[Rfam]
RNA sequence: CCCGCGGACCGGGCCCCUCUGACGACGGAUUAUCCUCGUGAUGUCGGACCGCAUCG
Number, nucleotide and partner (000 for none) at each position: 001c000002c000003c000004g000005c000006g050007g049008a000009c047010c046011g045012g044013g000014c000015c000016c000017c000018u000019c000020u000021g000022a039023c038024g037025a036026c000027g034028g033029a000030u000031u000032a000033u028034c027035c000036u025037c024038g023039u022040g000041a000042u000043g000044u012045c011046g010047g009048a000049c007050c006051g000052c000053a000054u000055c000056g000
Rfam assigns this 56-nucleotide sequence from Agrobacterium albertimagni to the family "terC RNA". Taxonomically the source falls in Agrobacterium albertimagni (Bacteria, Pseudomonadati, Rhizobiaceae, Agrobacterium). Rfam 15.1 lists 1,112 matches to the family in 772 species.